[Rfam]
RNA sequence: AUGACCGGCGGAGAUGGCAUUCCUCCGGUCCUGUCGCGACAGGCGAACCGCCGCCAAGGCUGAUGAUGCCUGCCCACCC
Numbered sequence: 001a002u003g004a005c006c007g008g009c010g011g012a013g014a015u016g017g018c019a020u021u022c023c024u025c026c027g028g029u030c031c032u033g034u035c036g037c038g039a040c041a042g043g044c045g046a047a048c049c050g051c052c053g054c055c056a057a058g059g060c061u062g063a064u065g066a067u068g069c070c071u072g073c074c075c076a077c078c079c
Stems, first nucleotide, its partner, number of pairs: 010026004016070006050060003
Dot-bracket structure: .........[[[[..((((((.]]]].......................(((.....)))....)))))).........
The record is a 79-nucleotide RNA sequence from Lysobacter enzymogenes, which matches "Fluoride riboswitch aptamer (crcB RNA motif)" in Rfam. It scores 48 bits against the family's covariance model. Gene Ontology terms of the family: positive regulation of gene expression and response to fluoride. Taxonomically the source falls in Lysobacter (Bacteria, Pseudomonadati, Pseudomonadota, Lysobacteraceae).